[Rfam]
RNA sequence: GGAUGUGGAUGAUGAGAUUACAAGUAAAAAUACAGUUAUCCCUGUCUUACUUCUCGGGAAGGGUGCUGAAAAUACUUUCAGUCUGACAGGAUU
Numbered sequence: 001g002g003a004u005g006u007g008g009a010u011g012a013u014g015a016g017a018u019u020a021c022a023a024g025u026a027a028a029a030a031u032a033c034a035g036u037u038a039u040c041c042c043u044g045u046c047u048u049a050c051u052u053c054u055c056g057g058g059a060a061g062g063g064u065g066c067u068g069a070a071a072a073u074a075c076u077u078u079c080a081g082u083c084u085g086a087c088a089g090g091a092u093u
Base pairs, nucleotide, nucleotide: 001093002092004090006088007087

This 93-nucleotide sequence from Triticum urartu belongs to the Rfam family "Small nucleolar RNA R38". Rfam describes the family as follows. snoR38 is a C/D box small nucleolar RNA conserved across yeast, human, Arabidopsis and rice. It is encoded in the intron of elongation factor-1 gamma in both pombe and cerevisiae. snoR38 guides the methylation of 2'-O-ribose sites in 28S rRNA. The source organism's lineage runs through Eukaryota, Streptophyta, Tracheophyta, Spermatophyta and Triticum. Gene Ontology terms of the family: RNA processing and nucleolus. The family's consensus secondary structure was predicted with PFOLD.